[Rfam]
RNA sequence: CCCUGACAGCUUUAUAAUAAAGCUGACUAUAGCCAAGACAGGAGAUCUAAAUG
Number, nucleotide and partner (000 for none) at each position: 001c000002c042003c041004u040005g039006a000007c025008a024009g023010c022011u021012u000013u000014a000015u000016a000017a000018u000019a000020a000021a011022g010023c009024u008025g007026a000027c000028u000029a000030u000031a000032g000033c000034c000035a000036a000037g000038a000039c005040a004041g003042g002043a000044g000045a000046u000047c000048u000049a000050a000051a000052u000053g000
The record is a 53-nucleotide sequence, which matches "Mu-gpT-DE RNA" in Rfam. By type it is a small RNA. Pairs were carried over by alignment from the consensus structure, which is taken from published work. The sequence is in the family's curated seed alignment.